[Rfam]
RNA sequence: GCCCUGGAACCCCGGCGCCGCCUGCCCUAUAUCGGCACUGCCGGCCGGGAGCGAUCCCGGCGGCUAUGGUGAUAAACGUGGCUCGGGAUAAGCGUUGCGGACCCGGGGGCAGUGCCCGGCGCCUCCACCACCUCAGCCGCCCGUGUCGGGGCGGCGGCAAGGGGGCGAAACAGGCUCGACGCGCGUGGUAAUGGGGUCGCUUUUGCCCGGCAUGGUUCCGCCGUCAUCGGGCCAAAUCUAAGUGCGAACGACAACGACGCACUCGCUGUUGCUGCGUAAGCAGUAAACAAGCGCGGUUCGGGGGGCACCGGGCAACAGAAGCCCCCCACU
Numbered sequence: 001g002c003c004c005u006g007g008a009a010c011c012c013c014g015g016c017g018c019c020g021c022c023u024g025c026c027c028u029a030u031a032u033c034g035g036c037a038c039u040g041c042c043g044g045c046c047g048g049g050a051g052c053g054a055u056c057c058c059g060g061c062g063g064c065u066a067u068g069g070u071g072a073u074a075a076a077c078g079u080g081g082c083u084c085g086g087g088a089u090a091a092g093c094g095u096u097g098c099g100g101a102c103c104c105g106g107g108g109g110c111a112g113u114g115c116c117c118g119g120c121g122c123c124u125c126c127a128c129c130a131c132c133u134c135a136g137c138c139g140c141c142c143g144u145g146u147c148g149g150g151g152c153g154g155c156g157g158c159a160a161g162g163g164g165g166c167g168a169a170a171c172a173g174g175c176u177c178g179a180c181g182c183g184c185g186u187g188g189u190a191a192u193g194g195g196g197u198c199g200c201u202u203u204u205g206c207c208c209g210g211c212a213u214g215g216u217u218c219c220g221c222c223g224u225c226a227u228c229g230g231g232c233c234a235a236a237u238c239u240a241a242g243u244g245c246g247a248a249c250g251a252c253a254a255c256g257a258c259g260c261a262c263u264c265g266c267u268g269u270u271g272c273u274g275c276g277u278a279a280g281c282a283g284u285a286a287a288c289a290a291g292c293g294c295g296g297u298u299c300g301g302g303g304g305g306c307a308c309c310g311g312g313c314a315a316c317a318g319a320a321g322c323c324c325c326c327c328a329c330u
Stems, first nucleotide, its partner, number of pairs: 040064004068207005078200007093185003097182003103119005120167007208223004213234003217231003294310004300327006
A member of the RNA family "Alphaproteobacteria transfer-messenger RNA" from Roseicella frigidaeris, 330 nucleotides long. The match comes from Rfam's covariance-model search (216 bits). Pairs were carried over by alignment from the consensus structure, which is taken from published work. It is annotated as a non-coding RNA gene. Rfam's curators write: Bacterial tmRNA, also known as 10Sa RNA or SsrA, is named for its dual tRNA and mRNA-like properties. Its role is to liberate the mRNA from a stalled ribosome. To accomplish this part of the tmRNA is used as a reading frame that ends in a translation stop signal. The broken mRNA is replaced in the ribosome by the tmRNA and translation of the tmRNA leads to addition of a proteolysis tag to the incomplete protein enabling recognition by a protease.